[Rfam]
RNA sequence: CGAAAAACCAGCGUCAGCGGACGCUGGUGAGGACUUUCAGUGUGGCCGUUCGUGCCCUGAGGGCAAACGGAAACGGUGACGCGUUGCGUCGAAGGAGCGGGGCAGCGGUAAAAAGGUUAACGCCCUGUGACUAAUGUGGACGGAUUCUAUGCACGGUUUUAUAGAUCGUCAACACUAUAGAAUGCAAUAUCUAUAACUAUUUGUAA
Numbered sequence: 001c002g003a004a005a006a007a008c009c010a011g012c013g014u015c016a017g018c019g020g021a022c023g024c025u026g027g028u029g030a031g032g033a034c035u036u037u038c039a040g041u042g043u044g045g046c047c048g049u050u051c052g053u054g055c056c057c058u059g060a061g062g063g064c065a066a067a068c069g070g071a072a073a074c075g076g077u078g079a080c081g082c083g084u085u086g087c088g089u090c091g092a093a094g095g096a097g098c099g100g101g102g103c104a105g106c107g108g109u110a111a112a113a114a115g116g117u118u119a120a121c122g123c124c125c126u127g128u129g130a131c132u133a134a135u136g137u138g139g140a141c142g143g144a145u146u147c148u149a150u151g152c153a154c155g156g157u158u159u160u161a162u163a164g165a166u167c168g169u170c171a172a173c174a175c176u177a178u179a180g181a182a183u184g185c186a187a188u189a190u191c192u193a194u195a196a197c198u199a200u201u202u203g204u205a206a
Stems, first nucleotide, its partner, number of pairs: 008027007046108005055069001078090005135174003140169004146165004
Burkholderia sRNA Bp1_Cand738_SIPHT: a 206-nucleotide RNA sequence from Burkholderia sp. SRS-W-2-2016. A search with the family's covariance model found it, with a score of 159 bits.